RNA sequence: GAAGUGGGCGAGAUGACCGCUUCAGACUGCCUGUAUUAAAUUUAAAAUGGUAGAUUUGAAGAGGAAAGUCCGAGCUCCAUAGGAUACAGUGCUCCGUAACGCGGAGUGGGAGUGAUCCCGAGGAAAGUGCCACAGAAAAUAUACCGCCCCGCUUCUUGCUGUUCUCCCUGUGCUUUCUUGCCGAAAGUAGGCUCUGUAACCGAAAGUAGGCCCCUUUAGGGGGAGCGAAAGCAAGAACAGGGAUGAAGCAAGAAAGCAGCGGGGUAAGGGUGAAAAGGUGGGGCCCAAUUAUGGGCUUAAUGUAAGAGCCCACCGCUUUCUGAGUGAUUAGAGAGGCAUGGCAAACCCCACUGGGAGAAAGGCUAAAUAAAGAGGAAUAAAGUGAUCCGCUUUUUAAACCUCUGGGUAGGCCGAUUGAUUCCGAUGGCAACAUCAGAACUAGAUUAAUGGUCAUCAAGAACAGAACUCGGCUUAUUGCCUGCUUCUGAU
Numbered sequence: 001g002a003a004g005u006g007g008g009c010g011a012g013a014u015g016a017c018c019g020c021u022u023c024a025g026a027c028u029g030c031c032u033g034u035a036u037u038a039a040a041u042u043u044a045a046a047a048u049g050g051u052a053g054a055u056u057u058g059a060a061g062a063g064g065a066a067a068g069u070c071c072g073a074g075c076u077c078c079a080u081a082g083g084a085u086a087c088a089g090u091g092c093u094c095c096g097u098a099a100c101g102c103g104g105a106g107u108g109g110g111a112g113u114g115a116u117c118c119c120g121a122g123g124a125a126a127g128u129g130c131c132a133c134a135g136a137a138a139a140u141a142u143a144c145c146g147c148c149c150c151g152c153u154u155c156u157u158g159c160u161g162u163u164c165u166c167c168c169u170g171u172g173c174u175u176u177c178u179u180g181c182c183g184a185a186a187g188u189a190g191g192c193u194c195u196g197u198a199a200c201c202g203a204a205a206g207u208a209g210g211c212c213c214c215u216u217u218a219g220g221g222g223g224a225g226c227g228a229a230a231g232c233a234a235g236a237a238c239a240g241g242g243a244u245g246a247a248g249c250a251a252g253a254a255a256g257c258a259g260c261g262g263g264g265u266a267a268g269g270g271u272g273a274a275a276a277g278g279u280g281g282g283g284c285c286c287a288a289u290u291a292u293g294g295g296c297u298u299a300a301u302g303u304a305a306g307a308g309c310c311c312a313c314c315g316c317u318u319u320c321u322g323a324g325u326g327a328u329u330a331g332a333g334a335g336g337c338a339u340g341g342c343a344a345a346c347c348c349c350a351c352u353g354g355g356a357g358a359a360a361g362g363c364u365a366a367a368u369a370a371a372g373a374g375g376a377a378u379a380a381a382g383u384g385a386u387c388c389g390c391u392u393u394u395u396a397a398a399c400c401u402c403u404g405g406g407u408a409g410g411c412c413g414a415u416u417g418a419u420u421c422c423g424a425u426g427g428c429a430a431c432a433u434c435a436g437a438a439c440u441a442g443a444u445u446a447a448u449g450g451u452c453a454u455c456a457a458g459a460a461c462a463g464a465a466c467u468c469g470g471c472u473u474a475u476u477g478c479c480u481g482c483u484u485c486u487g488a489u
Stems, first nucleotide, its partner, number of pairs: 001485011012455007020061007028053001066473003070470005075357004082388004087353005092106005107121001108119004122348002127346002129342003144269002146265008277314006315337001316335008361412004371403005380392004419438003423434004
RNA: Bacterial RNase P class A
Organism: Candidatus Scalindua rubra